[Rfam]
RNA sequence: GGUGGGUGUGCCUGAAACCUUGGCUCAAGCCUGAAAGUAUAGAAGGUGAGCAAAGUUUCAGGUGUACUCACUG
Numbered sequence: 001g002g003u004g005g006g007u008g009u010g011c012c013u014g015a016a017a018c019c020u021u022g023g024c025u026c027a028a029g030c031c032u033g034a035a036a037g038u039a040u041a042g043a044a045g046g047u048g049a050g051c052a053a054a055g056u057u058u059c060a061g062g063u064g065u066a067c068u069c070a071c072u073g
Base pairs, nucleotide, nucleotide: 002071003070004069005068006067007066009064010063011062012061013060014059015058017056018055020053021052024050025049026048027047030046031045032044

Shown here is a 73-nucleotide sequence from Candidula unifasciata, a member of the family "mir-87 microRNA precursor family".